[Rfam]
Nucleotides: 358
Stems, first nucleotide, its partner, number of pairs: 016034006035355004043334001045332002049314002054078006063071002085310003089123002094117006101109002127144005147306008162296003168284009179272005185202005207255003216246005226236003261266001320329002337349003
Number, partner (000 for none) and nucleotide at each position: 001000a002000a003000u004000a005000g006000u007000a008000g009000c010000a011000g012000c013000g014000u015000a016034g017033u018032c019031g020030g021029g022000u023000g024000a025000g026000a027000a028000u029021c030020c031019u032018g033017a034016c035355c036354g037353c038352c039000g040000a041000a042000a043334g044000a045332g046331u047000u048000a049314g050313g051000u052000u053000u054078c055077c056076u057075u058074g059073g060000c061000a062000a063071u064070g065000u066000u067000c068000a069000u070064c071063a072000g073059c074058c075057a076056a077055g078054g079000g080000u081000u082000a083000g084000c085310c086309g087308g088000u089123c090122c091000u092000a093000a094117u095116c096115c097114c098113g099112u100000c101109c102108g103000u104000a105000a106000g107000u108102c109101g110000a111000g112099a113098c114097g115096g116095g117094a118000g119000a120000a121000a122090g123089g124000g125000a126000a127144a128143c129142g130141g131140g132000u133000u134000a135000a136000u137000a138000u139000u140131c141130c142129c143128g144127u145000g146000c147306c148305u149304g150303u151302c152301g153300u154299c155000a156000c157000c158000a159000a160000a161000a162296g163295c164294c165000g166000a167000c168284g169283c170282u171281u172280u173279g174278g175277g176276a177000u178000a179272g180271a181270a182269g183268g184000a185202g186201c187200g188199g189198g190000g191000c192000a193000c194000u195000c196000g197000c198189c199188c200187c201186g202185u203000c204000c205000a206000a207255a208254c209253g210000c211000u212000g213000a214000a215000a216246c217245c218244c219243g220242u221000g222000g223000a224000g225000u226236g227235c228234c229000g230000u231000a232000a233000u234228g235227g236226c237000g238000a239000g240000a241000a242220g243219c244218g245217g246216g247000c248000g249000a250000a251000g252000c253209c254208g255207u256000a257000a258000g259000u260000g261266c262000g263000a264000a265000a266261g267000u268183c269182c270181u271180u272179c273000g274000a275000g276176u277175c278174c279173c280172g281171g282170a283169g284168c285000c286000c287000g288000u289000g290000a291000a292000a293000a294164g295163g296162c297000g298000a299154g300153a301152c302151g303150a304149c305148a306147g307000a308087c309086c310085g311000u312000a313050c314049c315000g316000a317000g318000a319000a320329c321328c322000g323000a324000c325000a326000c327000a328321g329320g330000u331046a332045u333000c334043u335000c336000u337349g338348g339347c340000u341000g342000a343000g344000u345000a346000g347339g348338c349337c350000u351000a352038g353037g354036c355035g356000u357000g358000u
Rfam assigns this 358-nucleotide part of an RNA from Halorutilus salinus to the family "Archaeal large subunit ribosomal RNA". The organism belongs to Halorutilus, within Archaea. A search with the family's covariance model found it, with a score of 2791 bits.